[Rfam]
RNA sequence: AAAAAGGGCUUCUGCCAUGUGUGGCACGGGGAGGGGGGAAUUACCCUCUCUCCCGCGGAAUCGACAUCAAGAGAUUUCGGAAGCACAAUUUUUGUAAGGGAGGGCUGCUGGUAACCGCUUGUUCCGGCACCCCG
Numbered sequence: 001a002a003a004a005a006g007g008g009c010u011u012c013u014g015c016c017a018u019g020u021g022u023g024g025c026a027c028g029g030g031g032a033g034g035g036g037g038g039a040a041u042u043a044c045c046c047u048c049u050c051u052c053c054c055g056c057g058g059a060a061u062c063g064a065c066a067u068c069a070a071g072a073g074a075u076u077u078c079g080g081a082a083g084c085a086c087a088a089u090u091u092u093u094g095u096a097a098g099g100g101a102g103g104g105c106u107g108c109u110g111g112u113a114a115c116c117g118c119u120u121g122u123u124c125c126g127g128c129a130c131c132c133c134g
Stems, first nucleotide, its partner, number of pairs: 008084005013026005027055005033049006056079007102132003107128005113123003

Shown here is a 134-nucleotide RNA sequence from Erithacus rubecula, a member of the family "U11 spliceosomal RNA". Pairs were carried over by alignment from the consensus structure, which is taken from published work. For this family Rfam cites "Identification of an evolutionarily divergent U11 small nuclear ribonucleoprotein particle in Drosophila" (Schneider et al., Proc Natl Acad Sci U S A, 2004). The organism belongs to Erithacus, within Eukaryota. The family's RNA type in Rfam is spliceosomal small nuclear RNA. It scores 119 bits against the family's covariance model. The family has 72 seed sequences and 2,595 matches in Rfam 15.1.